[Rfam]
RNA sequence: AGCUCGAUGAUCGUGGUUUUCUUUUUUACAGUAGACGCUAUUCUGAGAAAAAAAGGAGUUGAUGACAGAAAAUAUGAGAGCU
Numbered sequence: 001a002g003c004u005c006g007a008u009g010a011u012c013g014u015g016g017u018u019u020u021c022u023u024u025u026u027u028a029c030a031g032u033a034g035a036c037g038c039u040a041u042u043c044u045g046a047g048a049a050a051a052a053a054a055g056g057a058g059u060u061g062a063u064g065a066c067a068g069a070a071a072a073u074a075u076g077a078g079a080g081c082u
Stems, first nucleotide, its partner, number of pairs: 001082005
Small nucleolar RNA U54: an 82-nucleotide RNA sequence from Musa balbisiana. The organism belongs to Musa, within Eukaryota. Rfam classes the family as a C/D-box small nucleolar RNA. On this family, see Chen et al., Nucleic Acids Res 2003: "The high diversity of snoRNAs in plants: identification and comparative study of 120 snoRNA genes from Oryza sativa".